The family of this 134-nucleotide sequence from Nannospalax galili is "Small nucleolar RNA SNORA4". The match comes from Rfam's covariance-model search (99 bits). Its family is annotated with RNA processing and nucleolus in the Gene Ontology. The family's RNA type in Rfam is H/ACA-box small nucleolar RNA. The organism belongs to Nannospalax, within Eukaryota. ACA4 is a member of the H/ACA class of snoRNA that guide the sites of modification of uridines to pseudouridines. Its Rfam clan is "SNORA4 clan".
RNA sequence: GUACUAAAAGCUAAUUUGGGGAAAAGUUUUUAAUAACCUUUUCCAACUUGGGCUAUUAGCACAGUGGCUAAGACCAUAUUCCACAAUGGCCUAUACCACUUAGUAUGGGUCACUACUAUCUUGUGGCCUAAACU
Numbered sequence: 001g002u003a004c005u006a007a008a009a010g011c012u013a014a015u016u017u018g019g020g021g022a023a024a025a026g027u028u029u030u031u032a033a034u035a036a037c038c039u040u041u042u043c044c045a046a047c048u049u050g051g052g053c054u055a056u057u058a059g060c061a062c063a064g065u066g067g068c069u070a071a072g073a074c075c076a077u078a079u080u081c082c083a084c085a086a087u088g089g090c091c092u093a094u095a096c097c098a099c100u101u102a103g104u105a106u107g108g109g110u111c112a113c114u115a116c117u118a119u120c121u122u123g124u125g126g127c128c129u130a131a132a133c134u
Stems, first nucleotide, its partner, number of pairs: 004059004012055002015052003018048002021044001023042002026037003071129002074126005085114001087112010
Dot-bracket structure: ...((((....((.(((((.(.((.(((......)))...)).)..)).))).))))))...........((.(((((......(.((((((((((......)))))))))).).......))))).)).....